[Rfam]
RNA sequence: ACUCGAAGGCAAGCGUUGCUCAAGCGCGCAGCAUUCGAAGGCGUUUCGGGGAGGAAACGUCCGCUCUUUAAAGAGCAAGAUAGCCCGCUGCGAUGUAUCCCCCGCAGCGGGCUUUUCU
Dot-bracket structure: ..(((((.(.......(((.(....).))).).))))).((((((((......))))))))...(((....)))....((.(((((((((((..........))))))))))).))..
Numbered sequence: 001a002c003u004c005g006a007a008g009g010c011a012a013g014c015g016u017u018g019c020u021c022a023a024g025c026g027c028g029c030a031g032c033a034u035u036c037g038a039a040g041g042c043g044u045u046u047c048g049g050g051g052a053g054g055a056a057a058c059g060u061c062c063g064c065u066c067u068u069u070a071a072a073g074a075g076c077a078a079g080a081u082a083g084c085c086c087g088c089u090g091c092g093a094u095g096u097a098u099c100c101c102c103c104g105c106a107g108c109g110g111g112c113u114u115u116u117c118u
Stems, first nucleotide, its partner, number of pairs: 003038005009032001017030003021026001040061008065074003079116002082113011